[Rfam]
The record is a 172-nucleotide RNA from Chthonomonas calidirosea, which matches "M-box riboswitch aptamer (ykoK leader)" in Rfam. NCBI's taxonomy places the organism under Bacteria, Bacillati, Armatimonadota, Chthonomonadaceae, Chthonomonas calidirosea.
RNA sequence: AAUUCACCUCGAUAGGUGAGGCUCCCGCAUACAUAGAUGCCACUGCCCUUUCGUGUCCAGAGACACAAGGAGGGUUUAACAGGUAUUCCCGUUUGAAGGGUCUACCUAACGUGGCUGAGGCUUUAAGCCUCUAGGGUACGCGGUGCCAAAUCUUGAGCGAGUGGGUUGUUGU
Numbered sequence: 001a002a003u004u005c006a007c008c009u010c011g012a013u014a015g016g017u018g019a020g021g022c023u024c025c026c027g028c029a030u031a032c033a034u035a036g037a038u039g040c041c042a043c044u045g046c047c048c049u050u051u052c053g054u055g056u057c058c059a060g061a062g063a064c065a066c067a068a069g070g071a072g073g074g075u076u077u078a079a080c081a082g083g084u085a086u087u088c089c090c091g092u093u094u095g096a097a098g099g100g101u102c103u104a105c106c107u108a109a110c111g112u113g114g115c116u117g118a119g120g121c122u123u124u125a126a127g128c129c130u131c132u133a134g135g136g137u138a139c140g141c142g143g144u145g146c147c148a149a150a151u152c153u154u155g156a157g158c159g160a161g162u163g164g165g166u167u168g169u170u171g172u
Base pairs, nucleotide, nucleotide: 005168006167008165009164010163011158013097015153016152020147021146022145025143026142027141028140030138031137032136039115040114041113042112043111045075046074047073048072049071054065055064056063057062082106083105084104085103088100089099090098117131118130119129

About the family: M-box riboswitch, also know as ykoK leader is described as a metaloregulatory RNA that sense divalent metals and function as a genetic control element of genes related to divalent metal transport in bacteria.
A search with the family's covariance model found it, with a score of 126 bits.